[Rfam]
RNA sequence: GCCGUUUUUUGCAGCGGCGGAGCUCGACCGCCGACUCAAGUGAUCUGCGCCUACAUCGACGCGCACAAGCAUCGGUUCGGGGUCGAGCCGAUCUGCCGGGUGCUGUCCGAGCACGCCAUGCCGAUCGCCCCG
Dot-bracket structure: ...............(((((.......))))).............................................(((((......((.((.((.......................)).)).)))))))
RNA: ALIL pseudoknot
Organism: Nakamurella multipartita